[Rfam]
Record summary: This 124-nucleotide RNA sequence from Pluralibacter gergoviae belongs to the Rfam family "Phenylalanine leader peptide". It is annotated as a cis-regulatory leader. A search with the family's covariance model found it, with a score of 72 bits. A reference for the family is Zurawski et al. (1978), "Nucleotide sequence of the leader region of the phenylalanine operon of Escherichia coli", Proc Natl Acad Sci U S A. Gene Ontology term of the family: cellular amino acid metabolic process. Taxonomically the source falls in Pluralibacter (Bacteria, Pseudomonadota, Enterobacterales, Enterobacteriaceae).
RNA sequence: CAAGCAUGAAUGCUGCUAUUUUCCGCUUCUUUUUUUACUUUAGCACCUGAACCCGGGAGGCUAGCGCGUGAAAGAAGAAACGGAAAACAGCGCCAGAAAGCCUCCCAGUGGAGGCUUUUUUUAU
Numbered sequence: 001c002a003a004g005c006a007u008g009a010a011u012g013c014u015g016c017u018a019u020u021u022u023c024c025g026c027u028u029c030u031u032u033u034u035u036u037a038c039u040u041u042a043g044c045a046c047c048u049g050a051a052c053c054c055g056g057g058a059g060g061c062u063a064g065c066g067c068g069u070g071a072a073a074g075a076a077g078a079a080a081c082g083g084a085a086a087a088c089a090g091c092g093c094c095a096g097a098a099a100g101c102c103u104c105c106c107a108g109u110g111g112a113g114g115c116u117u118u119u120u121u122u123a124u
Stems, first nucleotide, its partner, number of pairs: 015091003020086006027079007035071004046057003059065001097118009
Rfam 15.1 lists 379 matches to the family in 290 species.